[Rfam]
RNA sequence: AAAUCAUCUGUUGAUGAUGGAAACAUAUUCUCUCACUGAGCUUUUAGCUUUGAAGAUUAAUUUAUUCGUCACUACCUCUGAAACAGAUGAUUU
Numbered sequence: 001a002a003a004u005c006a007u008c009u010g011u012u013g014a015u016g017a018u019g020g021a022a023a024c025a026u027a028u029u030c031u032c033u034c035a036c037u038g039a040g041c042u043u044u045u046a047g048c049u050u051u052g053a054a055g056a057u058u059a060a061u062u063u064a065u066u067c068g069u070c071a072c073u074a075c076c077u078c079u080g081a082a083a084c085a086g087a088u089g090a091u092u093u
Stems, first nucleotide, its partner, number of pairs: 001093012
RNA: Small nucleolar RNA SNORD70